This 87-nucleotide sequence from Alkalihalophilus pseudofirmus belongs to the Rfam family "pan motif". The match comes from Rfam's covariance-model search (66 bits).

RNA sequence: CGGGCUGUAUCUUAGGAACAGCACCUUUAAAAGUGAAAGUAGAAAAAAUUAGUUCUGCCUUGAUCCCAAAAGGACUAGGACAGAGGG
Numbered sequence: 001c002g003g004g005c006u007g008u009a010u011c012u013u014a015g016g017a018a019c020a021g022c023a024c025c026u027u028u029a030a031a032a033g034u035g036a037a038a039g040u041a042g043a044a045a046a047a048a049u050u051a052g053u054u055c056u057g058c059c060u061u062g063a064u065c066c067c068a069a070a071a072g073g074a075c076u077a078g079g080a081c082a083g084a085g086g087g
Base pairs, nucleotide, nucleotide: 002025003024004022005021006020007019008018010017011016055083056082057081058079059078060077062075064074065073066072